[Rfam]
RNA sequence: GGCUCCUUUAAGAUAGUCCCGUGAGACUAUCAAGGAAUUAUAUCGAAGUUAUCUUUGAAUUGGUGUACCAUACCAGUUUAGAGUUACUUAGAUAGUGGUAUAUAUUCCCUGUGCCUCACGGUAACAGGGAUUUUUUUAU
Numbered sequence: 001g002g003c004u005c006c007u008u009u010a011a012g013a014u015a016g017u018c019c020c021g022u023g024a025g026a027c028u029a030u031c032a033a034g035g036a037a038u039u040a041u042a043u044c045g046a047a048g049u050u051a052u053c054u055u056u057g058a059a060u061u062g063g064u065g066u067a068c069c070a071u072a073c074c075a076g077u078u079u080a081g082a083g084u085u086a087c088u089u090a091g092a093u094a095g096u097g098g099u100a101u102a103u104a105u106u107c108c109c110u111g112u113g114c115c116u117c118a119c120g121g122u123a124a125c126a127g128g129g130a131u132u133u134u135u136u137u138a139u
Stems, first nucleotide, its partner, number of pairs: 004036005013030006053083013102134001104132001106130007115121001

This 139-nucleotide RNA sequence from Natranaerobius trueperi belongs to the Rfam family "PyrR binding site". Gene Ontology terms of the family: pyrimidine nucleobase biosynthetic process and pyrimidine nucleobase transport. The organism belongs to Natranaerobius, within Bacteria. The family's RNA type in Rfam is cis-regulatory element.